[Rfam]
This 114-nucleotide RNA sequence from Agaribacter marinus belongs to the Rfam family "t44 RNA". This family consists of a number of bacterial RNA genes of between 135 and 170 bases in length. The t44 gene has been identified in several species of enteric bacteria but homologs have also been identified in Pseudomonas and Coxiella species. The t44 gene is found between the map and rpsB genes in all species in the full alignment apart from Shigella flexneri. The function of this RNA is unknown.
RNA sequence: AGCAAAUUAACUUUAAUACACACACAUACUAAGACUUGGUUUCGGGGUGUCGUUAUUCGGCUGUAAUAAAGCACUGUAAUUACGAUCGAAAGUAAGGGUAUGUGGAGGCUUAAC
Numbered sequence: 001a002g003c004a005a006a007u008u009a010a011c012u013u014u015a016a017u018a019c020a021c022a023c024a025c026a027u028a029c030u031a032a033g034a035c036u037u038g039g040u041u042u043c044g045g046g047g048u049g050u051c052g053u054u055a056u057u058c059g060g061c062u063g064u065a066a067u068a069a070a071g072c073a074c075u076g077u078a079a080u081u082a083c084g085a086u087c088g089a090a091a092g093u094a095a096g097g098g099u100a101u102g103u104g105g106a107g108g109c110u111u112a113a114c
Base pairs, nucleotide, nucleotide: 023104024103025102026101027100028099029098030097036095037094038093040091041090042089043088044087049086050085051084052083053082
The source organism's lineage runs through Bacteria, Pseudomonadota, Gammaproteobacteria, Alteromonadales and Agaribacter.